[Rfam]
RNA sequence: CCAUGUGUGGAUGGUGUUCAGCACCAAGAACAGGUAUGUUUGCCUGUGUGUGGAUGGUGUUCAGUACCAGGGACAGGUAAGUUCACUU
Numbered sequence: 001c002c003a004u005g006u007g008u009g010g011a012u013g014g015u016g017u018u019c020a021g022c023a024c025c026a027a028g029a030a031c032a033g034g035u036a037u038g039u040u041u042g043c044c045u046g047u048g049u050g051u052g053g054a055u056g057g058u059g060u061u062c063a064g065u066a067c068c069a070g071g072g073a074c075a076g077g078u079a080a081g082u083u084c085a086c087u088u
Stems, first nucleotide, its partner, number of pairs: 001076001004073001012069007020061007028049001030047007

Notes: A member of the RNA family "mir-2060 microRNA precursor family" from Branchiostoma belcheri, 88 nucleotides long. The family's consensus secondary structure was predicted with RNAalifold. Rfam links the family to the GO terms RISC complex and miRNA-mediated post-transcriptional gene silencing. It scores 84 bits against the family's covariance model.